[Rfam]
RNA: Purine riboswitch aptamer
RNA sequence: AAUUACGGAUCAAAGACAGCUCAUAUAAUUUCGUUGCAUGGAACGAAAGUUUCUACUGAGCCGCCAGCGGCUCUGCUAUGAGUGUCCGGCAAAAAUAC
Number, nucleotide and partner (000 for none) at each position: 001a000002a000003u000004u000005a000006c000007g000008g000009a000010u000011c000012a000013a000014a000015g000016a000017c000018a000019g083020c082021u081022c080023a079024u078025a077026u000027a000028a000029u048030u047031u046032c045033g044034u043035u042036g000037c000038a000039u000040g000041g000042a035043a034044c033045g032046a031047a030048a029049g000050u000051u000052u000053c000054u000055a000056c000057u000058g073059a072060g071061c070062c069063g068064c000065c000066a000067g000068c063069g062070g061071c060072u059073c058074u000075g000076c000077u025078a024079u023080g022081a021082g020083u019084g000085u000086c000087c000088g000089g000090c000091a000092a000093a000094a000095a000096u000097a000098c000